Notes
Rfam assigns this 76-nucleotide RNA from Ibidorhyncha struthersii to the family "Small nucleolar RNA SNORD101". The family's consensus secondary structure was predicted with PFOLD. A reference for the family is Vitali et al. (2003), "Identification of 13 novel human modification guide RNAs", Nucleic Acids Res. By type it is a C/D-box small nucleolar RNA.
RNA sequence: GUUUGGAUGAUGACUUAACCAUUUGUCGGAUACCCCUUCACUCGUCUUAAUGAGUGAGAACAGCGGCCUGACAAAC
Dot-bracket structure: (((((..................................................................)))))